[Rfam]
The family of this 579-nucleotide part of an RNA from uncultured bacterium HF0500_16O16 is "Bacterial small subunit ribosomal RNA". Rfam links the family to the GO terms structural constituent of ribosome and ribosome. The sequence is in the family's curated seed alignment. Its Rfam clan is "SSU clan".
RNA sequence: UACACGGAGAGUUUGAUCCUGGCUCAGAACUAACGCUAGUGGCGUGUCUUAGUCAUGCGAGUCGAGCGAGAAAGUCUUCUUCGGAAGACGAGUAGAGCGGCGAACGGGUGAGUAACGCGUGGGUAAUCUUCCUUUGAGUUGGGGAUAACAUUCCUAACGGAAUGCUAAUACCGAAUGUGGAGUACGGCUCUUGGGCCGUACUCUAAAGGCGGCCUCUGCUUGCAUGCUGUCGCUCGAAGAUGAGCCCGCGUCCUAUUAGCUUGUUGGUGAGGUAACGGCUCACCAAGGCAACGAUGGGUAGCCGGCCUGAGAGGGUGAGCGGCCACACUGGCACUGAGACAAGGGCCAGUCCCCUACGGGGGCCAGCAGUCUAGAAAUUUGCACAAUCGUCGAAAGACGGAUGCAGCGACGCCACGUGGAGGAUGAAGCCCCUCGGGGUGUAAACUCCUGUCAGGAGGGAAGAAGGUGCGGGUGAUAAUACCAUCCGUUACUUGACGGUACCUCCAGAGGAAGCUCCGGCUAACUGCGUGCCAGCAGCCGCGGUAAUACGUGGGGAGCAAGCGUUGUUCGGAUUUACUG
Numbered sequence: 001u002a003c004a005c006g007g008a009g010a011g012u013u014u015g016a017u018c019c020u021g022g023c024u025c026a027g028a029a030c031u032a033a034c035g036c037u038a039g040u041g042g043c044g045u046g047u048c049u050u051a052g053u054c055a056u057g058c059g060a061g062u063c064g065a066g067c068g069a070g071a072a073a074g075u076c077u078u079c080u081u082c083g084g085a086a087g088a089c090g091a092g093u094a095g096a097g098c099g100g101c102g103a104a105c106g107g108g109u110g111a112g113u114a115a116c117g118c119g120u121g122g123g124u125a126a127u128c129u130u131c132c133u134u135u136g137a138g139u140u141g142g143g144g145a146u147a148a149c150a151u152u153c154c155u156a157a158c159g160g161a162a163u164g165c166u167a168a169u170a171c172c173g174a175a176u177g178u179g180g181a182g183u184a185c186g187g188c189u190c191u192u193g194g195g196c197c198g199u200a201c202u203c204u205a206a207a208g209g210c211g212g213c214c215u216c217u218g219c220u221u222g223c224a225u226g227c228u229g230u231c232g233c234u235c236g237a238a239g240a241u242g243a244g245c246c247c248g249c250g251u252c253c254u255a256u257u258a259g260c261u262u263g264u265u266g267g268u269g270a271g272g273u274a275a276c277g278g279c280u281c282a283c284c285a286a287g288g289c290a291a292c293g294a295u296g297g298g299u300a301g302c303c304g305g306c307c308u309g310a311g312a313g314g315g316u317g318a319g320c321g322g323c324c325a326c327a328c329u330g331g332c333a334c335u336g337a338g339a340c341a342a343g344g345g346c347c348a349g350u351c352c353c354c355u356a357c358g359g360g361g362g363c364c365a366g367c368a369g370u371c372u373a374g375a376a377a378u379u380u381g382c383a384c385a386a387u388c389g390u391c392g393a394a395a396g397a398c399g400g401a402u403g404c405a406g407c408g409a410c411g412c413c414a415c416g417u418g419g420a421g422g423a424u425g426a427a428g429c430c431c432c433u434c435g436g437g438g439u440g441u442a443a444a445c446u447c448c449u450g451u452c453a454g455g456a457g458g459g460a461a462g463a464a465g466g467u468g469c470g471g472g473u474g475a476u477a478a479u480a481c482c483a484u485c486c487g488u489u490a491c492u493u494g495a496c497g498g499u500a501c502c503u504c505c506a507g508a509g510g511a512a513g514c515u516c517c518g519g520c521u522a523a524c525u526g527c528g529u530g531c532c533a534g535c536a537g538c539c540g541c542g543g544u545a546a547u548a549c550g551u552g553g554g555g556a557g558c559a560a561g562c563g564u565u566g567u568u569c570g571g572a573u574u575u576a577c578u579g
Stems, first nucleotide, its partner, number of pairs: 009025005027569004032565006039415006045408002047373001052371001054369001056368003061101003066098002070093001074089006108326003117251008127243002132239007140174001142172002149164006180203010208231006252298003259289003264286008301323004305316004328349005351362004379405001381404003387400005418448004428439004452510001454505005462496001468488006513558005524553005534541002